[Rfam]
RNA sequence: CAGCCAACCAAUUAAUCUAUUUCUCUGAAUAGUUUCUGCAGAAAUUUAGAAACAGCUGGCAAUAGUGAUGCCAUUUUCUGAGCCUUAAAGACAACUGAGGUCAUUAUAGUCCCUCAGUAUGGCUACAAUA
Numbered sequence: 001c002a003g004c005c006a007a008c009c010a011a012u013u014a015a016u017c018u019a020u021u022u023c024u025c026u027g028a029a030u031a032g033u034u035u036c037u038g039c040a041g042a043a044a045u046u047u048a049g050a051a052a053c054a055g056c057u058g059g060c061a062a063u064a065g066u067g068a069u070g071c072c073a074u075u076u077u078c079u080g081a082g083c084c085u086u087a088a089a090g091a092c093a094a095c096u097g098a099g100g101u102c103a104u105u106a107u108a109g110u111c112c113c114u115c116a117g118u119a120u121g122g123c124u125a126c127a128a129u130a
Stems, first nucleotide, its partner, number of pairs: 003060004016042003020038001070123004082110002086106003090102003

Overview
A member of the RNA family "Small nucleolar RNA SNORA33" from Jaculus jaculus, 130 nucleotides long. Rfam describes the family as follows. ACA33 is a member of the H/ACA class of snoRNA that guide the sites of modification of uridines to pseudouridines. Lineage of the source: Eukaryota > Euarchontoglires > Rodentia > Dipodidae > Jaculus. Pairs were carried over by alignment from the consensus structure, which was predicted with PFOLD.